[Rfam]
RNA sequence: UGAAUAUGUCCUUAAUAGAAACAGAUUUGAGCGGAAUCUGGAGGUUGAAAAGCGGGUGCAAUUUCCGACAUAUUCA
Dot-bracket structure: ((((((((((...........(((((((.....)))))))...(((....)))(((.......)))))))))))))
Description:
The family of this 76-nucleotide RNA sequence is "RAGATH-21 RNA".